[Rfam]
RNA sequence: UAACGGAAGAGCACUACUAGGCGUAGAGCCUGCGGCUUAAUUUGACUUAACACGGGGAAACUUACUAGGUCUAGACAUAGUAAGGAUUGAUAGAUUGAGAGCUCUUUCUUGAUUUUAUGGGUGGUAGUACAUGGCCGUUCUUAGUUGGUAGAGUAAUUUAUCUACUUAAUUACGAUAACGAACGAGACCUUCCCCUACUAAAUAGCUAGGCUAGCUUUAGCCGGUUACGGGCUUCUUAGAGGGAUAGUCGGCUUAAGCCGAUAGAAGUUAGAGGCAAUAACAGGUCUAUAAUACCCUUAGAUAUUCUAGGCCGCACGCGCGCUAUACUAACGGAGCUAACGAGUUUACUACCUUAGCCGAGAGGCCUAGGUAAUCUUAUUAAACUCCGUCGUGCUGGGGAUAGAGUAUUAUAAUUAUCACUCUUUAACGAGGAAUACCUAGUAAGCGCAUGUUAUUAGCAUGCGUUAAUUACGUCCCUACCCUUUAUACAUA
Numbered sequence: 001u002a003a004c005g006g007a008a009g010a011g012c013a014c015u016a017c018u019a020g021g022c023g024u025a026g027a028g029c030c031u032g033c034g035g036c037u038u039a040a041u042u043u044g045a046c047u048u049a050a051c052a053c054g055g056g057g058a059a060a061c062u063u064a065c066u067a068g069g070u071c072u073a074g075a076c077a078u079a080g081u082a083a084g085g086a087u088u089g090a091u092a093g094a095u096u097g098a099g100a101g102c103u104c105u106u107u108c109u110u111g112a113u114u115u116u117a118u119g120g121g122u123g124g125u126a127g128u129a130c131a132u133g134g135c136c137g138u139u140c141u142u143a144g145u146u147g148g149u150a151g152a153g154u155a156a157u158u159u160a161u162c163u164a165c166u167u168a169a170u171u172a173c174g175a176u177a178a179c180g181a182a183c184g185a186g187a188c189c190u191u192c193c194c195c196u197a198c199u200a201a202a203u204a205g206c207u208a209g210g211c212u213a214g215c216u217u218u219a220g221c222c223g224g225u226u227a228c229g230g231g232c233u234u235c236u237u238a239g240a241g242g243g244a245u246a247g248u249c250g251g252c253u254u255a256a257g258c259c260g261a262u263a264g265a266a267g268u269u270a271g272a273g274g275c276a277a278u279a280a281c282a283g284g285u286c287u288a289u290a291a292u293a294c295c296c297u298u299a300g301a302u303a304u305u306c307u308a309g310g311c312c313g314c315a316c317g318c319g320c321g322c323u324a325u326a327c328u329a330a331c332g333g334a335g336c337u338a339a340c341g342a343g344u345u346u347a348c349u350a351c352c353u354u355a356g357c358c359g360a361g362a363g364g365c366c367u368a369g370g371u372a373a374u375c376u377u378a379u380u381a382a383a384c385u386c387c388g389u390c391g392u393g394c395u396g397g398g399g400a401u402a403g404a405g406u407a408u409u410a411u412a413a414u415u416a417u418c419a420c421u422c423u424u425u426a427a428c429g430a431g432g433a434a435u436a437c438c439u440a441g442u443a444a445g446c447g448c449a450u451g452u453u454a455u456u457a458g459c460a461u462g463c464g465u466u467a468a469u470u471a472c473g474u475c476c477c478u479a480c481c482c483u484u485u486a487u488a489c490a491u492a
Stems, first nucleotide, its partner, number of pairs: 001490001003487001005485001007484003011480001013478001016474002020438002023435002025325001027323003031319004035314002041056004065309005076119005089108002092105003123297002127294003132291001133289001134285003137281003144183003148179002150159003163174001189273003194242003198239004204233004245264001247262006330389006341377003351370002356365003397428001402423005444466008